The family of this 186-nucleotide RNA sequence from Steroidobacter denitrificans is "Manganese Mn2+ riboswitch aptamer (yybP-ykoY)". The organism belongs to Steroidobacter, within Bacteria. About the family: This RNA was originally discovered in E. coli during a large scale screen and was named SraF. The family was later found to exist upstream of related families of protein genes in many bacteria, including the the yybP and ykoK genes in B. subtilis. The specific functions of these proteins are unknown, but this structured RNA element may be involved in their genetic regulation as a riboswitch. A search with the family's covariance model found it, with a score of 50 bits.
RNA sequence: ACCAAAGUCAUCAGAGAGUAAUCUUCCCCGGCCGCGCCGCGGGGCCUGCAUCGACAGACUUGGCCACAUCGGUCAUGGUGCAGGCGACCCCUAAGCUUGAUGAUAUCUUUGACCGCACCUAAGUCCGGUAGGGCCAGGACAGAGUGCAGGACAGGGCGUUCGUUGCGUCCGAUUUUCCUGGAGCAU
Numbered sequence: 001a002c003c004a005a006a007g008u009c010a011u012c013a014g015a016g017a018g019u020a021a022u023c024u025u026c027c028c029c030g031g032c033c034g035c036g037c038c039g040c041g042g043g044g045c046c047u048g049c050a051u052c053g054a055c056a057g058a059c060u061u062g063g064c065c066a067c068a069u070c071g072g073u074c075a076u077g078g079u080g081c082a083g084g085c086g087a088c089c090c091c092u093a094a095g096c097u098u099g100a101u102g103a104u105a106u107c108u109u110u111g112a113c114c115g116c117a118c119c120u121a122a123g124u125c126c127g128g129u130a131g132g133g134c135c136a137g138g139a140c141a142g143a144g145u146g147c148a149g150g151a152c153a154g155g156g157c158g159u160u161c162g163u164u165g166c167g168u169c170c171g172a173u174u175u176u177c178c179u180g181g182a183g184c185a186u
Stems, first nucleotide, its partner, number of pairs: 026043003044085010061075005